The record is a 127-nucleotide RNA sequence from Myxacorys almedinensis, which matches "Guanidine-I riboswitch aptamer" in Rfam. NCBI's taxonomy places the organism under Bacteria, Bacillati, Cyanobacteriota, Leptolyngbyales, Myxacorys almedinensis. Rfam links the family to the GO term regulation of gene expression.
[Rfam]
RNA sequence: AAUUAGCGCCUCUAGGGUUCCGGUUGAAACUGCGGUAGUUUACACGUCUGGUCCGAGAGAGGCAGGCUGUCAGAAGACUUGCUCAGAGUCAUCCACAGUCACACGGCGGGAGAAAAGCCCGGGAGAA
Numbered sequence: 001a002a003u004u005a006g007c008g009c010c011u012c013u014a015g016g017g018u019u020c021c022g023g024u025u026g027a028a029a030c031u032g033c034g035g036u037a038g039u040u041u042a043c044a045c046g047u048c049u050g051g052u053c054c055g056a057g058a059g060a061g062g063c064a065g066g067c068u069g070u071c072a073g074a075a076g077a078c079u080u081g082c083u084c085a086g087a088g089u090c091a092u093c094c095a096c097a098g099u100c101a102c103a104c105g106g107c108g109g110g111a112g113a114a115a116a117g118c119c120c121g122g123g124a125g126a127a
Base pairs, nucleotide, nucleotide: 008063009062010061011060012059015054016053020051021050022048023045024044027041028040029039030038031037032036065100066099067098068097069096070095102122104125108120109119110118